About this RNA: This 118-nucleotide RNA sequence from Streptomyces beijiangensis belongs to the Rfam family "SAM (S-adenosyl methionine) riboswitch aptamer". A search with the family's covariance model found it, with a score of 105 bits.
[Rfam]
RNA sequence: GGUCAUGAGUGACAGCGAUUUCGGCCUCAGCCCGCUGUCCGGCAACCCUCCUUCCGUGGCGGGGUGCCCUGAGUGAAGACCAGGCCGCAGGCAGCGACGUCUGUGGCAAGCGCGGAUC
Numbered sequence: 001g002g003u004c005a006u007g008a009g010u011g012a013c014a015g016c017g018a019u020u021u022c023g024g025c026c027u028c029a030g031c032c033c034g035c036u037g038u039c040c041g042g043c044a045a046c047c048c049u050c051c052u053u054c055c056g057u058g059g060c061g062g063g064g065u066g067c068c069c070u071g072a073g074u075g076a077a078g079a080c081c082a083g084g085c086c087g088c089a090g091g092c093a094g095c096g097a098c099g100u101c102u103g104u105g106g107c108a109a110g111c112g113c114g115g116a117u118c
Stems, first nucleotide, its partner, number of pairs: 001081004009040001011039006023032002041068003046064003050059002084107009
A reference for the family is Weinberg et al. (2008), "The aptamer core of SAM-IV riboswitches mimics the ligand-binding site of SAM-I riboswitches", RNA. From the family's description: SAM-IV is a mRNA element that regulates gene expression via direct sensing of S-adenosylmethionine (SAM or AdoMet). SAM-IV riboswitches share conserved nucleotide positions with the previously described SAM-I riboswitches sequence analysis and molecular recognition experiments suggest that SAM-I and SAM-IV riboswitches share similar ligand binding sites, but have different scaffolds. The family has 40 seed sequences and 2,360 matches in Rfam 15.1. Pairs were carried over by alignment from the consensus structure, which is taken from published work.